[Rfam]
RNA sequence: AAAGAAAAAAAUUGUGUAGGUCUUCUGGACGGGUUCUUCUCUAAUGAACCCGUCCAGAAGACCUACACAAAUUUUUUCUUU
Dot-bracket structure: ..(((((.((..(((((.((.(..(((((((((...............)))))))))..).)).)))))..)).)))))..
Numbered sequence: 001a002a003a004g005a006a007a008a009a010a011a012u013u014g015u016g017u018a019g020g021u022c023u024u025c026u027g028g029a030c031g032g033g034u035u036c037u038u039c040u041c042u043a044a045u046g047a048a049c050c051c052g053u054c055c056a057g058a059a060g061a062c063c064u065a066c067a068c069a070a071a072u073u074u075u076u077u078c079u080u081u
Stems, first nucleotide, its partner, number of pairs: 003079005009073002013069005019063002022060001025057009